This 435-nucleotide RNA from Novosphingobium sp. PC22D belongs to the Rfam family "Bacterial RNase P class A". Ribonuclease P (RNase P) is a ubiquitous endoribonuclease, found in archaea, bacteria and eukarya as well as chloroplasts and mitochondria. A search with the family's covariance model found it, with a score of 262 bits.
[Rfam]
RNA sequence: CCGGGGAGCCGGGCAGCCGCGUCAUGCCGCAAGGCAUGCCGAGGAAAGUCCGGGCUCCACGAAACGAGGGUGGCGGGUAACGCCCGCCGGGCGAGUGGGCCGCGAGGUCCGCGAAGCUCAGGGAAAGUGCCACAGAAAGCAAACCGCCGAUGCCCGUUCGCGGGCAGGCAAGGGUGAAAGGGUGCGGCAAGAGCGCACCGCGCUCCCGGCAACGGCGAGCGGCACGGCAAACCCCACCCGGAGCAAGACCGAAUAGGGUCCGCGCGCCGAGGACUUAUGUUCCGAGGCAGGUCUGUUUCGGACCGAGGCGGACCGGGUUGGUCGCUGGAGCGGCGCAGCGAUGCGCCGCGUAAGAGGAAUGGCUGCCCAGGCGGGGCCGGUCGCAUCGCGAUACCGCUCGCCUGACAGAACCCGGCUUACAGGCUCCCCGGCAUG
Dot-bracket structure: ((((((((((((((((((.((.((((((....)))))).))....[[[.[[[[[((((.....[.[.((((((((((.....)))))(((((.......................)))).)((...(((((............(((((..((((((....)))))))))..)).......((((((.......))))))(((((((((....))).))))).)..)))..)))))))))))))...((((......((((((...........................(((((.].].)))))....)))))).....))))......((((((((....))))))))...........)))))))...........................................]]]]]]]].).))))))))))....